[Rfam]
RNA sequence: AGCGCCGCGUAAGCGGGCCGACGGUCGACUCCGGCGGUGUUAGGGACCCCAGCCCGGCCCCGGAAAGCUGCGG
Numbered sequence: 001a002g003c004g005c006c007g008c009g010u011a012a013g014c015g016g017g018c019c020g021a022c023g024g025u026c027g028a029c030u031c032c033g034g035c036g037g038u039g040u041u042a043g044g045g046a047c048c049c050c051a052g053c054c055c056g057g058c059c060c061c062g063g064a065a066a067g068c069u070g071c072g073g
Stems, first nucleotide, its partner, number of pairs: 003039006043061003047057002
Rfam assigns this 73-nucleotide RNA from Mycobacterium noviomagense to the family "hya RNA".
The family's RNA type in Rfam is cis-regulatory element.
A search with the family's covariance model found it, with a score of 82 bits.